A member of the RNA family "Small nucleolar RNA SNORA84" from Irena cyanogastra, 134 nucleotides long. Its family is annotated with RNA processing and nucleolus in the Gene Ontology. Rfam classes the family as an H/ACA-box small nucleolar RNA. It scores 95 bits against the family's covariance model. The base pairs follow the family's consensus structure, which was predicted with WAR.
RNA sequence: GCCCUGUGGUUGCCGGACGCUGCUGUGCCCGUGCAGUGCUCUGGUUGGGAGGAAGGGCCCACAGUGAGGCUGUGAGUAACGCAGGGGGGCUGUGACCCCUGAGCAGCCCCCGUAGCCCGCUCGCAGGCACACCC
Numbered sequence: 001g002c003c004c005u006g007u008g009g010u011u012g013c014c015g016g017a018c019g020c021u022g023c024u025g026u027g028c029c030c031g032u033g034c035a036g037u038g039c040u041c042u043g044g045u046u047g048g049g050a051g052g053a054a055g056g057g058c059c060c061a062c063a064g065u066g067a068g069g070c071u072g073u074g075a076g077u078a079a080c081g082c083a084g085g086g087g088g089g090c091u092g093u094g095a096c097c098c099c100u101g102a103g104c105a106g107c108c109c110c111c112g113u114a115g116c117c118c119g120c121u122c123g124c125a126g127g128c129a130c131a132c133c134c
Stems, first nucleotide, its partner, number of pairs: 001059001003057002007050001010047001012045006019037005070126001072124006081116002083113001085111002088108006
Dot-bracket structure: (.((..(..(.((((((.(((((.........)))))..)))))).)..).....)).)..........(.((((((...(((.((.((((((.........)))))).)).).))..)))))).)........